The family of this 291-nucleotide RNA sequence from Streptomyces aurantiacus is "5' ureB small RNA". On this family, see Wen et al., J Bacteriol 2013: "Helicobacter pylori 5'ureB-sRNA, a cis-encoded antisense small RNA, negatively regulates ureAB expression by transcription termination".

RNA sequence: UCGUCGACGAUGGUCGGCGAGAUGAAGUGGAUGUGCGUGUCGAUGCCGCCCGCGGUGAGUAUCUUGCCGUUGCCCGCGAGGACUUCGGUCUCAGGACCGAUGACGAGGUCGGGGUGCACGCCGUCCAUCGUGUCCGGGUUGCCGGCCUUGCCGAUGCCGGUGAUCCGGCCGUCGCGGAUGCCGACGUCGGCCUUGAUCACGCCCCAGUGGUCGAUGAUCACGGCGCCCGUGAUGACGGUGUCGGGCGUUCCUUCGGCGCGGGUCGCCCGGGACUGGCCCAUCGACUCGCGG
Number, nucleotide and partner (000 for none) at each position: 001u291002c290003g289004u000005c288006g287007a286008c000009g000010a000011u163012g000013g161014u160015c159016g074017g073018c072019g071020a070021g000022a000023u000024g000025a000026a000027g000028u000029g050030g049031a000032u048033g047034u000035g046036c045037g044038u043039g000040u000041c000042g000043a038044u037045g036046c035047c033048g032049c030050c029051c000052g000053c000054g000055g067056u066057g065058a000059g000060u000061a000062u000063c000064u000065u057066g056067c055068c000069g000070u020071u019072g018073c017074c016075c000076g151077c000078g000079a148080g147081g146082a000083c144084u000085u000086c000087g000088g142089u141090c000091u000092c138093a000094g000095g134096a133097c132098c000099g000100a000101u000102g129103a128104c000105g000106a000107g125108g124109u123110c000111g121112g000113g000114g000115u000116g000117c000118a000119c000120g000121c111122c000123g109124u108125c107126c000127a000128u103129c102130g000131u000132g097133u096134c095135c000136g000137g000138g092139u000140u000141g089142c088143c000144g083145g000146c081147c080148u079149u000150g000151c076152c000153g000154a000155u000156g000157c000158c000159g015160g014161u013162g000163a011164u000165c000166c000167g000168g277169c276170c275171g274172u000173c000174g000175c269176g268177g267178a000179u265180g264181c262182c261183g000184a000185c000186g000187u000188c000189g000190g224191c223192c222193u000194u220195g219196a000197u000198c000199a000200c000201g000202c000203c000204c213205c000206a000207g000208u000209g000210g000211u000212c000213g204214a000215u000216g000217a000218u000219c195220a194221c000222g192223g191224c190225g000226c000227c000228c258229g257230u000231g000232a252233u000234g250235a249236c000237g000238g248239u247240g246241u000242c000243g000244g000245g000246c240247g239248u238249u235250c234251c000252u232253u000254c000255g000256g000257c229258g228259c000260g000261g182262g181263u000264c180265g179266c000267c177268c176269g175270g000271g000272a000273c000274u171275g170276g169277c168278c000279c000280a000281u000282c000283g000284a000285c000286u007287c006288g005289c003290g002291g001
Lineage of the source: Bacteria > Actinomycetota > Kitasatosporales > Streptomycetaceae > Streptomyces aurantiacus.